[Rfam]
Nucleotides: 101
Base pairs, nucleotide, nucleotide: 020087021086022085023084024083025082026081027080028079029078030074031073032072033071034070035069036068037067038066041064042063043062044061045060
Number, partner (000 for none) and nucleotide at each position: 001000a002000g003000g004000c005000c006000c007000a008000g009000a010000c011000c012000u013000u014000a015000a016000g017000a018000a019000a020087a021086a022085g023084g024083c025082c026081c027080u028079a029078u030074c031073a032072a033071u034070a035069u036068u037067g038066c039000c040000u041064c042063u043062g044061c045060u046000u047000u048000u049000a050000u051000g052000a053000u054000c055000a056000g057000g058000g059000a060045a061044g062043c063042a064041g065000u066038g067037c068036a069035a070034u071033a072032u073031u074030g075000c076000u077000u078029a079028u080027a081026g082025g083024g084023u085022c086021u087020u088000c089000u090000c091000u092000u093000g094000g095000a096000g097000g098000a099000c100000u101000u